A member of the RNA family "TPP riboswitch aptamer (THI element)" from Truepera sp., 100 nucleotides long. A reference for the family is Sudarsan et al. (2003), "Metabolite-binding RNA domains are present in the genes of eukaryotes", RNA. The source organism's lineage runs through Bacteria, Deinococcota, Trueperales, Trueperaceae and Truepera.
[Rfam]
RNA sequence: CUUAGUCACCAGGGGUGCCUUGCGGCUGAGAGGACUAAGUCCAACCCUGAGGAACCUGAUCCAGGUCAUACUGGCGUAGGGAGCGUGACGGUUCAUAAAG
Numbered sequence: 001c002u003u004a005g006u007c008a009c010c011a012g013g014g015g016u017g018c019c020u021u022g023c024g025g026c027u028g029a030g031a032g033g034a035c036u037a038a039g040u041c042c043a044a045c046c047c048u049g050a051g052g053a054a055c056c057u058g059a060u061c062c063a064g065g066u067c068a069u070a071c072u073g074g075c076g077u078a079g080g081g082a083g084c085g086u087g088a089c090g091g092u093u094c095a096u097a098a099a100g
Base pairs, nucleotide, nucleotide: 006088007087008086009085012048013047014046016043017026018025019024032042033041034040035039055080056079057078058077061074062073063072064071